[Rfam]
RNA sequence: UGGUAACACGAACUGGUGCUAAAGGGUCCCUGCCCCGACAGCACCAGCCGUUGGGCAGGACCCUUUAGCACCGGUUCGUGUUACGAA
Numbered sequence: 001u002g003g004u005a006a007c008a009c010g011a012a013c014u015g016g017u018g019c020u021a022a023a024g025g026g027u028c029c030c031u032g033c034c035c036c037g038a039c040a041g042c043a044c045c046a047g048c049c050g051u052u053g054g055g056c057a058g059g060a061c062c063c064u065u066u067a068g069c070a071c072c073g074g075u076u077c078g079u080g081u082u083a084c085g086a087a
Base pairs, nucleotide, nucleotide: 003084004083005082006081007080008079009078010077011076012075013074014073015072016071017070018069019068020067021066022065023064024063025062026061027060029059030058034055035054036053038051039050
The record is an 87-nucleotide sequence from Sorghum bicolor, which matches "MIR5387 microRNA precursor family" in Rfam. The family has 2 seed sequences and 1,029 matches in Rfam 15.1. It scores 79 bits against the family's covariance model. The base pairs follow the family's consensus structure, which was predicted with RNAalifold. Its family is annotated with miRNA-mediated post-transcriptional gene silencing and RISC complex in the Gene Ontology.